About this RNA
This 73-nucleotide RNA sequence from Haemonchus placei belongs to the Rfam family "mir-5890 microRNA precursor family". Rfam 15.1 lists 40 matches to the family in 2 species. Gene Ontology terms of the family: miRNA-mediated post-transcriptional gene silencing and RISC complex. It scores 61 bits against the family's covariance model.
RNA sequence: UUAAUGGCAUAUGACUGAAUUGUGGGAGGACUUACAUGAUCCUACCCCUCCUCAUUUUUAUGCUGCUUUGAGG
Number, nucleotide and partner (000 for none) at each position: 001u000002u000003a067004a000005u065006g064007g063008c062009a061010u060011a059012u000013g057014a056015c000016u054017g053018a052019a000020u000021u000022g048023u000024g047025g046026g045027a043028g042029g041030a040031c038032u000033u000034a000035c000036a000037u000038g031039a000040u030041c029042c028043u027044a000045c026046c025047c024048c022049u000050c000051c000052u018053c017054a016055u000056u014057u013058u000059u011060a010061u009062g008063c007064u006065g005066c000067u003068u000069u000070g000071a000072g000073g000